Shown here is a 126-nucleotide RNA sequence from Enterobacterales bacterium CwR94, a member of the family "Phenylalanine leader peptide".
Rfam 15.1 lists 379 matches to the family in 290 species.
Its family is annotated with cellular amino acid metabolic process in the Gene Ontology.
The source organism's lineage runs through Bacteria, Pseudomonadati, Pseudomonadota, Gammaproteobacteria and Enterobacterales.
The match comes from Rfam's covariance-model search (117 bits).
RNA sequence: UAUGAAUAUUCUGCCGUUUUUCUUCGCUUUCUUUUUUACCUUCCCCUGAACUGGGAGGCAAUUCGUCCUGUAAGAAAGUAAGUGAAGACGAACAGCAAAGCCUCCCAACCGGGAGGCUUUUUUAUU
Numbered sequence: 001u002a003u004g005a006a007u008a009u010u011c012u013g014c015c016g017u018u019u020u021u022c023u024u025c026g027c028u029u030u031c032u033u034u035u036u037u038a039c040c041u042u043c044c045c046c047u048g049a050a051c052u053g054g055g056a057g058g059c060a061a062u063u064c065g066u067c068c069u070g071u072a073a074g075a076a077a078g079u080a081a082g083u084g085a086a087g088a089c090g091a092a093c094a095g096c097a098a099a100g101c102c103u104c105c106c107a108a109c110c111g112g113g114a115g116g117c118u119u120u121u122u123u124a125u126u
Stems, first nucleotide, its partner, number of pairs: 016093004021088009031078004036073004042056004057067003097120010